[Rfam]
RNA sequence: ACGGUGGCACGAGUUUUUAUCGUUUCCUCGUCUUGGGUCCGUCCGAAGCCGAACGAUGUCAGGCUGGACCACACCGU
Numbered sequence: 001a002c003g004g005u006g007g008c009a010c011g012a013g014u015u016u017u018u019a020u021c022g023u024u025u026c027c028u029c030g031u032c033u034u035g036g037g038u039c040c041g042u043c044c045g046a047a048g049c050c051g052a053a054c055g056a057u058g059u060c061a062g063g064c065u066g067g068a069c070c071a072c073a074c075c076g077u
Base pairs, nucleotide, nucleotide: 001077002076003075004074005073006072009031010030011029012028037069038068039067040066041065043063044062

A member of the RNA family "CyVA-1 RNA", 77 nucleotides long. It is one of the family's seed sequences.